[Rfam]
RNA: mir-9242 microRNA precursor family
RNA sequence: GGCCUCCCUCUGUGGGGCGAUUGAUUGCGGGACGCCCAGAUCAAUCGCCCCAUAGAGGGAGGCC
Numbered sequence: 001g002g003c004c005u006c007c008c009u010c011u012g013u014g015g016g017g018c019g020a021u022u023g024a025u026u027g028c029g030g031g032a033c034g035c036c037c038a039g040a041u042c043a044a045u046c047g048c049c050c051c052a053u054a055g056a057g058g059g060a061g062g063c064c
Stems, first nucleotide, its partner, number of pairs: 001064026029036002